This 86-nucleotide sequence from Oryza sativa belongs to the Rfam family "Small nucleolar RNA Z182". The sequence is in the family's curated seed alignment. Pairs were carried over by alignment from the consensus structure.
[Rfam]
RNA sequence: ACUGUGCCUAUGAUGAAUGUUGAACCUGUGUCAGGAUUUGAACCACUGGGCAUGUAAAUCUCACUAGGUUUUUUCUGAGGCAUGUU
Numbered sequence: 001a002c003u004g005u006g007c008c009u010a011u012g013a014u015g016a017a018u019g020u021u022g023a024a025c026c027u028g029u030g031u032c033a034g035g036a037u038u039u040g041a042a043c044c045a046c047u048g049g050g051c052a053u054g055u056a057a058a059u060c061u062c063a064c065u066a067g068g069u070u071u072u073u074u075c076u077g078a079g080g081c082a083u084g085u086u
Base pairs, nucleotide, nucleotide: 003084004083005082006081007080008079
The organism belongs to Oryza sativa, within Eukaryota.